A member of the RNA family "Small nucleolar RNA snoR14" from Solanum tuberosum, 91 nucleotides long. Clan: SNORD110 clan. It is annotated as a C/D-box small nucleolar RNA. Pairs were carried over by alignment from the consensus structure. Rfam 15.1 lists 668 matches to the family in 221 species.
RNA sequence: GCGAAGUGACGAUAGAAAUUCAUUAGUCUGUCAAUCCACUGACAACUAAAUUGUGUGAUGUUACAAGUGAAUCUCGACAGGUUCUGAUCGC
Numbered sequence: 001g002c003g004a005a006g007u008g009a010c011g012a013u014a015g016a017a018a019u020u021c022a023u024u025a026g027u028c029u030g031u032c033a034a035u036c037c038a039c040u041g042a043c044a045a046c047u048a049a050a051u052u053g054u055g056u057g058a059u060g061u062u063a064c065a066a067g068u069g070a071a072u073c074u075c076g077a078c079a080g081g082u083u084c085u086g087a088u089c090g091c
Base pairs, nucleotide, nucleotide: 001091002090003089004088